RNA sequence: UUAGCUAUUUUAGAUAAGUUUGUAGUCAUGAAACUCAUGGGUGCAGACAACGCAAACUUGUUUGUAUCUAUGAUGGCUAGAGAAUUUUAAGUUGACCAAAUUCGCCACAUAGAUUUCGAAAAAAUCUAUGUGGCUUUAAUAGUUCAGUGAUGACGAUUCUGUUCAUCCGUUAGCAUCCACUUUAGAUUUUUGAC
Numbered sequence: 001u002u003a004g005c006u007a008u009u010u011u012a013g014a015u016a017a018g019u020u021u022g023u024a025g026u027c028a029u030g031a032a033a034c035u036c037a038u039g040g041g042u043g044c045a046g047a048c049a050a051c052g053c054a055a056a057c058u059u060g061u062u063u064g065u066a067u068c069u070a071u072g073a074u075g076g077c078u079a080g081a082g083a084a085u086u087u088u089a090a091g092u093u094g095a096c097c098a099a100a101u102u103c104g105c106c107a108c109a110u111a112g113a114u115u116u117c118g119a120a121a122a123a124a125u126c127u128a129u130g131u132g133g134c135u136u137u138a139a140u141a142g143u144u145c146a147g148u149g150a151u152g153a154c155g156a157u158u159c160u161g162u163u164c165a166u167c168c169g170u171u172a173g174c175a176u177c178c179a180c181u182u183u184a185g186a187u188u189u190u191u192g193a194c
Stems, first nucleotide, its partner, number of pairs: 001080007011070006018048007026040004053064004085153001087152001091148003104134005110128007155177003159173003
Rfam assigns this 194-nucleotide RNA sequence from Carnobacterium divergens to the family "Enterococcus sRNA 2410". The match comes from Rfam's covariance-model search (71 bits). The literature on the family includes a 2017 paper in Sci Rep by Sinel et al., "Small RNAs in vancomycin-resistant Enterococcus faecium involved in daptomycin response and resistance". Rfam's curators write: Produced as 2 transcripts on Northern blot. Expressed in mid, late exponential and early stationary phases of growth. Expression remained uniform under daptomycin exposure.